[Rfam]
RNA sequence: GAUUCUCAAAAGCGUUCACCUCCUCGUGGUGAGAAUCGGGCAACUCUGAUGUUUACGAAUAAAUCAGAGGCAAAGAACGCGUGA
Numbered sequence: 001g002a003u004u005c006u007c008a009a010a011a012g013c014g015u016u017c018a019c020c021u022c023c024u025c026g027u028g029g030u031g032a033g034a035a036u037c038g039g040g041c042a043a044c045u046c047u048g049a050u051g052u053u054u055a056c057g058a059a060u061a062a063a064u065c066a067g068a069g070g071c072a073a074a075g076a077a078c079g080c081g082u083g084a
Stems, first nucleotide, its partner, number of pairs: 001037007018030003044069007